[Rfam]
RNA sequence: CACCCAGCGGGGCAGGCGCUAGGCGCCGGCCGGAAUUGGAACAGGGGCUGGUCAAGCGCUCGCAGGGGAAGCACGGGGGCCGAAUGUCGGGGGACGUUCGGCCCCCUUUUU
Numbered sequence: 001c002a003c004c005c006a007g008c009g010g011g012g013c014a015g016g017c018g019c020u021a022g023g024c025g026c027c028g029g030c031c032g033g034a035a036u037u038g039g040a041a042c043a044g045g046g047g048c049u050g051g052u053c054a055a056g057c058g059c060u061c062g063c064a065g066g067g068g069a070a071g072c073a074c075g076g077g078g079g080c081c082g083a084a085u086g087u088c089g090g091g092g093g094a095c096g097u098u099c100g101g102c103c104c105c106c107u108u109u110u111u
Base pairs, nucleotide, nucleotide: 003067004066005065007063008062009061010060011059012057013056015027016026017025018024019023028053029052030051031050032049033048036045037044075106076105077104078103079102080101081100082099083098084097085096086095087094088093